Shown here is a 56-nucleotide RNA from Skermanella aerolata, a member of the family "terC RNA".
[Rfam]
RNA sequence: UCAAUCGUCCGGGCCCCUCUGGCAACCUUCCCCGGUUGCGAUGUCGGACGCGCCGC
Numbered sequence: 001u002c003a004a005u006c007g008u009c010c011g012g013g014c015c016c017c018u019c020u021g022g023c024a025a026c027c028u029u030c031c032c033c034g035g036u037u038g039c040g041a042u043g044u045c046g047g048a049c050g051c052g053c054c055g056c
Stems, first nucleotide, its partner, number of pairs: 006050007022039006

It scores 52 bits against the family's covariance model. The base pairs follow the family's consensus structure, which is taken from published work.